[Rfam]
RNA: mir-9058 microRNA precursor family
Organism: Equus caballus
RNA sequence: GUGGCUGCCAGAUGGGUGCUCUCUACUAGUGCUGUGCAGAGGCUUUCCCUGAGGCUGCUGUGAGCCUGUAGGGUUUGCCCCUAGGCUACGAAGCUGG
Number, nucleotide and partner (000 for none) at each position: 001g000002u096003g095004g094005c093006u092007g086008c085009c084010a082011g081012a000013u000014g080015g079016g078017u077018g076019c000020u000021c073022u072023c071024u070025a069026c068027u000028a067029g066030u000031g065032c064033u063034g000035u000036g061037c060038a059039g058040a000041g056042g055043c054044u053045u052046u051047c000048c000049c000050u000051g046052a045053g044054g043055c042056u041057g000058c039059u038060g037061u036062g000063a033064g032065c031066c029067u028068g026069u025070a024071g023072g022073g021074u000075u000076u018077g017078c016079c015080c014081c011082u010083a000084g009085g008086c007087u000088a000089c000090g000091a000092a006093g005094c004095u003096g002097g000